[Rfam]
RNA sequence: AUUACCGGACUUAUAAAACCCAAGCCGCAGGUGCGGUUGGUGCAUCUAUCCGGGUCAAGGCGCGUAAGCCGCCACCCUCACCCCGCUCGCUUGCCGAGCAGGGAAUGCUAUCGCACGGCUGAGGGAACCAACAAAAGCCUCGGGCCGGGUCGCCGUGCCCGAGGCUAUUUAGUUAUAUAUCCUGAUUCA
Numbered sequence: 001a002u003u004a005c006c007g008g009a010c011u012u013a014u015a016a017a018a019c020c021c022a023a024g025c026c027g028c029a030g031g032u033g034c035g036g037u038u039g040g041u042g043c044a045u046c047u048a049u050c051c052g053g054g055u056c057a058a059g060g061c062g063c064g065u066a067a068g069c070c071g072c073c074a075c076c077c078u079c080a081c082c083c084c085g086c087u088c089g090c091u092u093g094c095c096g097a098g099c100a101g102g103g104a105a106u107g108c109u110a111u112c113g114c115a116c117g118g119c120u121g122a123g124g125g126a127a128c129c130a131a132c133a134a135a136a137g138c139c140u141c142g143g144g145c146c147g148g149g150u151c152g153c154c155g156u157g158c159c160c161g162a163g164g165c166u167a168u169u170u171a172g173u174u175a176u177a178u179a180u181c182c183u184g185a186u187u188c189a
Stems, first nucleotide, its partner, number of pairs: 005053005013045002020040004025036002054076001059073004063068001085188001087185003097174003106171002109121002112118001136166010
Sense overlapping transcript RNA 2652 (sot): a 189-nucleotide RNA sequence from Haloquadratum walsbyi. It is associated with IS1341-type transposase (tnpB) genes, at the 3'-end in H. salinarum NRC-1. The tetraloop structural motif may be functional. Lineage of the source: Archaea > Methanobacteriati > Methanobacteriota > Halobacteriales > Haloquadratum. By type it is a small RNA. A reference for the family is Gomes-Filho et al. (2015), "Sense overlapping transcripts in IS1341-type transposase genes are functional non-coding RNAs in archaea", RNA Biol. The match comes from Rfam's covariance-model search (100 bits). The family's consensus secondary structure was predicted with RNAfold.